[Rfam]
RNA sequence: AAGCAGGAAAUGUUACAAUACAACUGUAGUGUUCUAUUGUCGUUCCCCCUGCUUAGAGCAACUGAUGCAUACUAUCUCUGCAUGGCACGAUUUCAUAGCCAGACAGAGACACUUGGCCUCAUACAU
Numbered sequence: 001a002a003g004c005a006g007g008a009a010a011u012g013u014u015a016c017a018a019u020a021c022a023a024c025u026g027u028a029g030u031g032u033u034c035u036a037u038u039g040u041c042g043u044u045c046c047c048c049c050u051g052c053u054u055a056g057a058g059c060a061a062c063u064g065a066u067g068c069a070u071a072c073u074a075u076c077u078c079u080g081c082a083u084g085g086c087a088c089g090a091u092u093u094c095a096u097a098g099c100c101a102g103a104c105a106g107a108g109a110c111a112c113u114u115g116g117c118c119u120c121a122u123a124c125a126u
Base pairs, nucleotide, nucleotide: 003052004051005050006049007048015040016039017038018037019036020035022033023032024031077107078106079105080104083101084100085099086098
RNA: Small nucleolar RNA SNORA63
Organism: Erinaceus europaeus